[Rfam]
RNA sequence: AAAUCUGGUGUCUUAGUCAAAUAUCAGCUGGUAAUUCUGGGAUAUUAGAAUAACUCAGGAUUCUUGCUGGUAUCUGGCUAAGCAUUAGA
Number, nucleotide and partner (000 for none) at each position: 001a000002a000003a000004u000005c000006u000007g000008g000009u000010g000011u000012c000013u081014u080015a079016g078017u077018c076019a000020a000021a073022u072023a071024u070025c069026a068027g067028c066029u000030g064031g063032u000033a000034a061035u060036u059037c058038u057039g056040g055041g054042a000043u000044a000045u000046u000047a000048g000049a000050a000051u000052a000053a000054c041055u040056c039057a038058g037059g036060a035061u034062u000063c031064u030065u000066g028067c027068u026069g025070g024071u023072a022073u021074c000075u000076g018077g017078c016079u015080a014081a013082g000083c000084a000085u000086u000087a000088g000089a000

mir-283 microRNA precursor family: an 89-nucleotide sequence from Cotesia typhae. It scores 71 bits against the family's covariance model. For this family Rfam cites "Functional shifts in insect microRNA evolution" (Marco et al., Genome Biol Evol, 2010).